[Rfam]
RNA sequence: UGCCUAACCCCUAUAUCAUUUGGCGAUUUCCGAUGUAAGGUAUGGCAAAGAUAAAACCCUACGCGAAUAAAGAUGGUCUUCUGACCGGCACUUAUUCGCGUAGGUUUAUGCCUGAAAGGGCGUAGGACAGUUCUGAAAGGGAUUGUC
Numbered sequence: 001u002g003c004c005u006a007a008c009c010c011c012u013a014u015a016u017c018a019u020u021u022g023g024c025g026a027u028u029u030c031c032g033a034u035g036u037a038a039g040g041u042a043u044g045g046c047a048a049a050g051a052u053a054a055a056a057c058c059c060u061a062c063g064c065g066a067a068u069a070a071a072g073a074u075g076g077u078c079u080u081c082u083g084a085c086c087g088g089c090a091c092u093u094a095u096u097c098g099c100g101u102a103g104g105u106u107u108a109u110g111c112c113u114g115a116a117a118g119g120g121c122g123u124a125g126g127a128c129a130g131u132u133c134u135g136a137a138a139g140g141g142a143u144u145g146u147c
Stems, first nucleotide, its partner, number of pairs: 001047004009040002012037006058104011072089001074087004106125008126147009